[Rfam]
A member of the RNA family "mir-9223 microRNA precursor family" from Myotis davidii, 76 nucleotides long. The source organism's lineage runs through Eukaryota, Opisthokonta, Vertebrata, Yangochiroptera and Myotis. Pairs were carried over by alignment from the consensus structure, which was predicted with RNAalifold.
RNA sequence: GGUGGUUCUCAGGUGAUGUACUCUGGAAUUGGGCUCCCUCCUCUCUGGUUCCAGGAUGCGUCACCUAAGAACUGUC
Numbered sequence: 001g002g003u004g005g006u007u008c009u010c011a012g013g014u015g016a017u018g019u020a021c022u023c024u025g026g027a028a029u030u031g032g033g034c035u036c037c038c039u040c041c042u043c044u045c046u047g048g049u050u051c052c053a054g055g056a057u058g059c060g061u062c063a064c065c066u067a068a069g070a071a072c073u074g075u076c
Stems, first nucleotide, its partner, number of pairs: 002075002005072005011066007019058002022055002025052009